The record is a 116-nucleotide RNA from Bagarius yarrelli, which matches "U5 spliceosomal RNA" in Rfam.
The family's consensus secondary structure is taken from published work.
The organism belongs to Bagarius, within Eukaryota.

RNA sequence: GGUCAUAUGGCUCUUCAUUCAGGCAUAAAUCUUUCUCACCUUUUACUAAAGAUUUCCGUUUGAGAGGACCAUUAAUGAGUUGACCUUAUUUUUGCAGGCUUUGCUAACGCAAAGCU
Dot-bracket structure: ..((((....(((((.(.........((((((((.............))))))))....).)))))........)))).................(.((((((......)))))))